RNA sequence: GUACAUAUGAUGAUACAAAUCAGUAUGAAUAAAAUGAUACUGUAAACGCUUUCUGAUGUA
Numbered sequence: 001g002u003a004c005a006u007a008u009g010a011u012g013a014u015a016c017a018a019a020u021c022a023g024u025a026u027g028a029a030u031a032a033a034a035u036g037a038u039a040c041u042g043u044a045a046a047c048g049c050u051u052u053c054u055g056a057u058g059u060a
Base pairs, nucleotide, nucleotide: 002060003059004058005057012052013051016048021042022041023040024039025038026037
A member of the RNA family "Small nucleolar RNA Z39" from Dipodomys ordii, 60 nucleotides long. The family has 5 seed sequences and 935 matches in Rfam 15.1. By type it is a C/D-box small nucleolar RNA. Pairs were carried over by alignment from the consensus structure, which was predicted with PFOLD. It scores 81 bits against the family's covariance model.